Rfam assigns this 74-nucleotide sequence from Drosophila grimshawi to the family "mir-6 microRNA precursor family". NCBI's taxonomy places the organism under Eukaryota, Eumetazoa, Altocrustacea, Eremoneura, Hawaiian Drosophila. Rfam links the family to the GO terms RISC complex and miRNA-mediated post-transcriptional gene silencing. Pairs were carried over by alignment from the consensus structure, which was predicted with PFOLD. From the family's description: This family consists of the microRNA (miRNA) precursor mir-6 which appears to be Drosophila specific. Animal miRNAs are transcribed as ~70nt precursors and subsequently processed by the Dicer enzyme to give a ~22nt product.
RNA sequence: AAGGAAGAGAACGCUCGCUGCUGAUGUAGUUCAUGAUUCAAAUAUUUUAUAUCACAGUGGCUGUUCUUUUUUGU
Numbered sequence: 001a002a003g004g005a006a007g008a009g010a011a012c013g014c015u016c017g018c019u020g021c022u023g024a025u026g027u028a029g030u031u032c033a034u035g036a037u038u039c040a041a042a043u044a045u046u047u048u049a050u051a052u053c054a055c056a057g058u059g060g061c062u063g064u065u066c067u068u069u070u071u072u073g074u
Stems, first nucleotide, its partner, number of pairs: 003072002006069007015060006022054002025051004
Dot-bracket structure: ..((.(((((((..((((((.((.((((...................)))).))))))))..))))))).))..